[Rfam]
RNA: mir-9256 microRNA precursor family
RNA sequence: AUAUACACCGAGUGGCCAGAUGAUGAUGUGUUCAGAGAUCAUCAUCAUCUGGCCACUCGGUGUAUAU
Numbered sequence: 001a002u003a004u005a006c007a008c009c010g011a012g013u014g015g016c017c018a019g020a021u022g023a024u025g026a027u028g029u030g031u032u033c034a035g036a037g038a039u040c041a042u043c044a045u046c047a048u049c050u051g052g053c054c055a056c057u058c059g060g061u062g063u064a065u066a067u
Base pairs, nucleotide, nucleotide: 004064005063006062007061008060009059010058011057012056013055014054015053016052017051019049020048021047022046023045024044025043026042027041028040